[Rfam]
Nucleotides: 087
Base pairs, nucleotide, nucleotide: 001086002085003084004083005082006081007080
Number, partner (000 for none) and nucleotide at each position: 001086g002085u003084u004083c005082c006081c007080u008000g009000u010000g011000a012000u013000g014000a015000u016000u017000u018000u019000u020000u021000u022000u023000g024000u025000a026000a027000c028000c029000a030000u031000g032000c033000u034000a035000a036000u037000u038000c039000u040000g041000a042000u043000c044000a045000u046000u047000c048000u049000g050000u051000g052000a053000u054000g055000a056000a057000a058000u059000c060000c061000u062000u063000c064000u065000u066000c067000g068000u069000u070000u071000u072000a073000u074000u075000u076000u077000c078000u079000g080007a081006g082005g083004g084003a085002a086001c087000a